This 90-nucleotide sequence from Eubacterium sp. CAG:841 belongs to the Rfam family "Glycine riboswitch aptamer".
The source organism's lineage runs through Bacteria, Bacillota, Clostridia, Eubacteriales and Eubacterium.
Rfam's curators write: This family represents the bacterial glycine riboswitch.
[Rfam]
RNA sequence: GAGAUCAACUCUGGAGAAUCCCGUACAAUCGGGUGCCGAAGGUGCAAGGCUAAAGCCGAAUCUCUCAGGCAAAAGAACGGAGCAGACAAA
Numbered sequence: 001g002a003g004a005u006c007a008a009c010u011c012u013g014g015a016g017a018a019u020c021c022c023g024u025a026c027a028a029u030c031g032g033g034u035g036c037c038g039a040a041g042g043u044g045c046a047a048g049g050c051u052a053a054a055g056c057c058g059a060a061u062c063u064c065u066c067a068g069g070c071a072a073a074a075g076a077a078c079g080g081a082g083c084a085g086a087c088a089a090a
Base pairs, nucleotide, nucleotide: 006085009082010081011080012079013078020033021032022031023030035070036069037068038066039065042064044062048057049056